[Rfam]
Description
The record is a 193-nucleotide sequence from Paenibacillus sp. J31TS4, which matches "c-di-AMP riboswitch aptamer (ydaO/yuaA leader)" in Rfam. Rfam's curators write: This family represents a conserved RNA structure found upstream of the ydaO and yuaA genes in Bacillus subtilis and related genes in other bacteria. The ydaO/yuaA element is thought to act as a genetic 'off' switch for the ydaO and yuaA genes in its native state. It is believed that the element may be triggered during osmotic shock leading to activation of ydaO, a predicted amino acid transporter gene, and members of the yuaA-yubG operon which code for KtrA and KtrB K+ transporters. A search with the family's covariance model found it, with a score of 88 bits.
RNA sequence: AUUUCCAAUUCGCUGAGUUUCCUUAACAGGGAAACGGGGGAACCGUAAAUGGCCGCUAGGUUGUACAUAGCGUCACCAUGGUUAAGGGGUGAAUCCUUGAGAUUUCGACGCACAGAAGUGCGCGGACCAAGGUAGGGCGACUCUCUCGUCCGAAUCCGUCAGCUAACCUCGUAAGCGUGAAGAGAGAGGUGCG
Numbered sequence: 001a002u003u004u005c006c007a008a009u010u011c012g013c014u015g016a017g018u019u020u021c022c023u024u025a026a027c028a029g030g031g032a033a034a035c036g037g038g039g040g041a042a043c044c045g046u047a048a049a050u051g052g053c054c055g056c057u058a059g060g061u062u063g064u065a066c067a068u069a070g071c072g073u074c075a076c077c078a079u080g081g082u083u084a085a086g087g088g089g090u091g092a093a094u095c096c097u098u099g100a101g102a103u104u105u106c107g108a109c110g111c112a113c114a115g116a117a118g119u120g121c122g123c124g125g126a127c128c129a130a131g132g133u134a135g136g137g138c139g140a141c142u143c144u145c146u147c148g149u150c151c152g153a154a155u156c157c158g159u160c161a162g163c164u165a166a167c168c169u170c171g172u173a174a175g176c177g178u179g180a181a182g183a184g185a186g187a188g189g190u191g192c193g
Stems, first nucleotide, its partner, number of pairs: 011177004018033005034172006044086001087157003095132004135151004